RNA: Manganese Mn2+ riboswitch aptamer (yybP-ykoY)
RNA sequence: CCGCUGCAGUCAUUGGGGAGUAGCCUGUUCCAGAAAAUCUCUGGAAAAUUUGUAUCAACAUACUCGUUUAAAAUAAAACGUGGUACGAAUACCCAAAUAACCUAAUAAAAUCUAGGUU
Dot-bracket structure: ...........................(((.............))).((((((((((.......(((((......)))))))))))))))............................